[Rfam]
RNA sequence: CAGGGAAUAGUUUAAAUAGAACUUCAGCUUUGGGGGUUGAUGGUGAGACUGCAGUUUCUUCCUUGA
Numbered sequence: 001c002a003g004g005g006a007a008u009a010g011u012u013u014a015a016a017u018a019g020a021a022c023u024u025c026a027g028c029u030u031u032g033g034g035g036g037u038u039g040a041u042g043g044u045g046a047g048a049c050u051g052c053a054g055u056u057u058c059u060u061c062c063u064u065g066a
Stems, first nucleotide, its partner, number of pairs: 001065007010022004024040005045058005
Description: The family of this 66-nucleotide RNA is "tRNA". The family's consensus secondary structure is taken from published work.